[Rfam]
RNA sequence: UGCCUUUGUGUUGCCCAUUCGUUUUUAUAUGAUGAAUGUGGUGUCGACUAAGGCAUACAGAAAAUCUUGGAAAAGCCAAUCUUUUGAGAGGAUAACGUUACUGUCUCCUCUUUCUUGUUGCUAUCAAGAACAACA
Numbered sequence: 001u002g003c004c005u006u007u008g009u010g011u012u013g014c015c016c017a018u019u020c021g022u023u024u025u026u027a028u029a030u031g032a033u034g035a036a037u038g039u040g041g042u043g044u045c046g047a048c049u050a051a052g053g054c055a056u057a058c059a060g061a062a063a064a065u066c067u068u069g070g071a072a073a074a075g076c077c078a079a080u081c082u083u084u085u086g087a088g089a090g091g092a093u094a095a096c097g098u099u100a101c102u103g104u105c106u107c108c109u110c111u112u113u114c115u116u117g118u119u120g121c122u123a124u125c126a127a128g129a130a131c132a133a134c135a
Stems, first nucleotide, its partner, number of pairs: 002054005009046002012043004016038008066128004075122001077120003084117001086115001088113002090110002095104001
RNA: Small nucleolar RNA SNORA13